[Rfam]
RNA: Phenylalanine leader peptide
Organism: Salmonella enterica
RNA sequence: CAAGCAUGAACGCUGCUAUUUUCCGUUUCUUUUUUUACUUUAGCACCUGAUUCCAGGAGGCUAGCGCGUGAAAAACGAAACGAAAAACAGCGCAAAAAAGCCUCCUGAUGGAGGCUUUUUUUGU
Numbered sequence: 001c002a003a004g005c006a007u008g009a010a011c012g013c014u015g016c017u018a019u020u021u022u023c024c025g026u027u028u029c030u031u032u033u034u035u036u037a038c039u040u041u042a043g044c045a046c047c048u049g050a051u052u053c054c055a056g057g058a059g060g061c062u063a064g065c066g067c068g069u070g071a072a073a074a075a076c077g078a079a080a081c082g083a084a085a086a087a088c089a090g091c092g093c094a095a096a097a098a099a100g101c102c103u104c105c106u107g108a109u110g111g112a113g114g115c116u117u118u119u120u121u122u123g124u
Stems, first nucleotide, its partner, number of pairs: 015091003020086003024082006031075003035071004041055001056065001097118009